[Rfam]
RNA: Small nucleolar RNA snoR109
Nucleotides: 105
Base pairs, nucleotide, nucleotide: 022098023097024096026094027093028092033086034085035084037082038081039080041077042076043075044074
Number, partner (000 for none) and nucleotide at each position: 001000u002000g003000g004000c005000u006000g007000u008000a009000g010000c011000u012000a013000u014000a015000u016000c017000c018000a019000a020000u021000c022098u023097g024096g025000a026094g027093u028092u029000u030000u031000c032000u033086g034085g035084c036000c037082g038081g039080u040000u041077g042076u043075u044074u045000u046000u047000u048000g049000a050000g051000g052000u053000u054000c055000u056000c057000c058000a059000u060000u061000a062000g063000g064000a065000u066000c067000u068000c069000a070000a071000c072000c073000u074044a075043g076042a077041c078000a079000u080039a081038u082037c083000u084035g085034c086033u087000u088000a089000c090000c091000g092028a093027a094026c095000c096024c097023c098022a099000u100000a101000c102000a103000u104000u105000u